Flavo-1 RNA: an 80-nucleotide RNA sequence from Flavobacterium sp. PL002. The base pairs follow the family's consensus structure, which is taken from published work. Taxonomically the source falls in Flavobacterium (Bacteria, Pseudomonadati, Flavobacteriia, Flavobacteriaceae).
[Rfam]
RNA sequence: GUUUUGCGUUAGGGAUAGUAACGGCAUCCUUUGUGUCGCUUUUUUGCGACACAAAGAUAUAGUGGAUAGCCCGCCCAACU
Number, nucleotide and partner (000 for none) at each position: 001g000002u000003u000004u000005u000006g000007c000008g000009u000010u000011a000012g072013g071014g070015a000016u068017a067018g000019u000020a000021a063022c062023g000024g000025c000026a058027u057028c056029c000030u000031u000032u053033g052034u051035g050036u049037c048038g047039c046040u000041u000042u000043u000044u000045u000046g039047c038048g037049a036050c035051a034052c033053a032054a000055a000056g028057a027058u026059a000060u000061a000062g022063u021064g000065g000066a000067u017068a016069g000070c014071c013072c012073g000074c000075c000076c000077a000078a000079c000080u000